[Rfam]
RNA sequence: AGUAUCAUGAAUUAGAAACCUACUUGUUACAUAGUUUACAUAAGAAGCGUGAUGCUGCUGCUGAUGCU
Numbered sequence: 001a002g003u004a005u006c007a008u009g010a011a012u013u014a015g016a017a018a019c020c021u022a023c024u025u026g027u028u029a030c031a032u033a034g035u036u037u038a039c040a041u042a043a044g045a046a047g048c049g050u051g052a053u054g055c056u057g058c059u060g061c062u063g064a065u066g067c068u
Base pairs, nucleotide, nucleotide: 001068002067003066004065005064006063007062011056013054014053018050019049020047021046023044024043025042026041027040
RNA: mir-1322 microRNA precursor family